RNA sequence: UCCGAUUCUCGGGGCGGGGUGAAAGUCCCCACCGGCGGUGUCCCGGUUUUUUCCCGGGGAGCCCGCAAGCGCCUCCAAGGGGGGCGCCGAUCCGGUGCGAAGCCGGGGCCGACGGUUACAGUCCGGAUGGAAGAGAGGAGGC
Numbered sequence: 001u002c003c004g005a006u007u008c009u010c011g012g013g014g015c016g017g018g019g020u021g022a023a024a025g026u027c028c029c030c031a032c033c034g035g036c037g038g039u040g041u042c043c044c045g046g047u048u049u050u051u052u053c054c055c056g057g058g059g060a061g062c063c064c065g066c067a068a069g070c071g072c073c074u075c076c077a078a079g080g081g082g083g084g085c086g087c088c089g090a091u092c093c094g095g096u097g098c099g100a101a102g103c104c105g106g107g108g109c110c111g112a113c114g115g116u117u118a119c120a121g122u123c124c125g126g127a128u129g130g131a132a133g134a135g136a137g138g139a140g141g142c
Stems, first nucleotide, its partner, number of pairs: 003140001006137005017029003031122002033111002035066004061109002069087003091107005113125003
About this RNA
The record is a 142-nucleotide RNA sequence from Aminithiophilus ramosus, which matches "FMN riboswitch aptamer (RFN element)" in Rfam. The family's consensus secondary structure is taken from published work. It scores 99 bits against the family's covariance model.